[Rfam]
RNA: Hairpin ribozyme 1 from viruses-like metatranscriptomes
RNA sequence: CUGUUGAGCUGGGACAACCGUGGAUUGCAUCGUCGCUGAUGUUGGCCACCCAGUGAGGCAUACCAGGGAAACACUUGGGACUAGCAAUCCAAGGCACAUUAACUGGU
Numbered sequence: 001c002u003g004u005u006g007a008g009c010u011g012g013g014a015c016a017a018c019c020g021u022g023g024a025u026u027g028c029a030u031c032g033u034c035g036c037u038g039a040u041g042u043u044g045g046c047c048a049c050c051c052a053g054u055g056a057g058g059c060a061u062a063c064c065a066g067g068g069a070a071a072c073a074c075u076u077g078g079g080a081c082u083a084g085c086a087a088u089c090c091a092a093g094g095c096a097c098a099u100u101a102a103c104u105g106g107u
Base pairs, nucleotide, nucleotide: 002060003059004058009053010052011051012050013049021048022047023046062107063106064105065104066103074093075092076091077090078089079088